Overview:
A member of the RNA family "Pseudomon-groES RNA" from Pseudomonas sp. MRSN 12121, 112 nucleotides long. The source organism's lineage runs through Bacteria, Pseudomonadati, Pseudomonadota, Pseudomonadaceae and Pseudomonas.
RNA sequence: GUAUCGGUCACCGCAAGGUUUCUGGUGGUGACACCAGACAGACUUCCGCGUCUCGCUCGUCGAGCCGUACCCGGCCACGCCGGAUUUGUUAACCCGCCGGUACGACACCGGC
Numbered sequence: 001g002u003a004u005c006g007g008u009c010a011c012c013g014c015a016a017g018g019u020u021u022c023u024g025g026u027g028g029u030g031a032c033a034c035c036a037g038a039c040a041g042a043c044u045u046c047c048g049c050g051u052c053u054c055g056c057u058c059g060u061c062g063a064g065c066c067g068u069a070c071c072c073g074g075c076c077a078c079g080c081c082g083g084a085u086u087u088g089u090u091a092a093c094c095c096g097c098c099g100g101u102a103c104g105a106c107a108c109c110g111g112c
Base pairs, nucleotide, nucleotide: 010019011018012017021038022037023036024035025034026033048068049067050066052064053063054062055061071083072082073081074080096112097111098110099109100108101107